A member of the RNA family "SAM (S-adenosyl methionine) riboswitch aptamer" from Micrococcus terreus, 113 nucleotides long.
RNA sequence: AAUCACGAGUUCCGGUGCGAAGCCCUGGCUGGCCGGACAGCAACCCUCUCGCUGUAGCGGGGUGCUCCAGGUGAUGAUUCGGCCGGCACGAACGUGACCGGCAAGUACAGCGC
Numbered sequence: 001a002a003u004c005a006c007g008a009g010u011u012c013c014g015g016u017g018c019g020a021a022g023c024c025c026u027g028g029c030u031g032g033c034c035g036g037a038c039a040g041c042a043a044c045c046c047u048c049u050c051g052c053u054g055u056a057g058c059g060g061g062g063u064g065c066u067c068c069a070g071g072u073g074a075u076g077a078u079u080c081g082g083c084c085g086g087c088a089c090g091a092a093c094g095u096g097a098c099c100g101g102c103a104a105g106u107a108c109a110g111c112g113c
Stems, first nucleotide, its partner, number of pairs: 001079004009038001011037006021030002039066003044062003048057002082102005087096003
The family's consensus secondary structure is taken from published work. From the family's description: SAM-IV is a mRNA element that regulates gene expression via direct sensing of S-adenosylmethionine (SAM or AdoMet). The organism belongs to Micrococcus, within Bacteria. Clan: SAM clan.